RNA sequence: GUGCUGUGAUGAUGCCUUAAAAUUGUGGUUUCAACUUGCUGAGAGUAAAAUGAAGACCUGCAAUUCCUUGGCUGUGUCUGAGCAC
Numbered sequence: 001g002u003g004c005u006g007u008g009a010u011g012a013u014g015c016c017u018u019a020a021a022a023u024u025g026u027g028g029u030u031u032c033a034a035c036u037u038g039c040u041g042a043g044a045g046u047a048a049a050a051u052g053a054a055g056a057c058c059u060g061c062a063a064u065u066c067c068u069u070g071g072c073u074g075u076g077u078c079u080g081a082g083c084a085c
Base pairs, nucleotide, nucleotide: 001085002084003083004082
RNA: Small nucleolar RNA SNORD53/SNORD92